[Rfam]
RNA sequence: GGCACAGGACUUGCCAAGUAAUCACCACAGGUAACCAACGGCGGUUGCCCCUACGACGAAGACGUCGC
Numbered sequence: 001g002g003c004a005c006a007g008g009a010c011u012u013g014c015c016a017a018g019u020a021a022u023c024a025c026c027a028c029a030g031g032u033a034a035c036c037a038a039c040g041g042c043g044g045u046u047g048c049c050c051c052u053a054c055g056a057c058g059a060a061g062a063c064g065u066c067g068c
Stems, first nucleotide, its partner, number of pairs: 030049007
RNA: narK RNA